RNA sequence: CGCCGGGGACGACCCCGGCGCGUCUCCUUUCCCGGGAGGACGACCUCC
Numbered sequence: 001c002g003c004c005g006g007g008g009a010c011g012a013c014c015c016c017g018g019c020g021c022g023u024c025u026c027c028u029u030u031c032c033c034g035g036g037a038g039g040a041c042g043a044c045c046u047c048c
Stems, first nucleotide, its partner, number of pairs: 001020008035048005
Guanidine-II riboswitch aptamer (mini-ykkC): a 48-nucleotide RNA from Phenylobacterium zucineum. The literature on the family includes a 2017 paper in Cell Chem Biol by Huang et al., "The Structure of the Guanidine-II Riboswitch".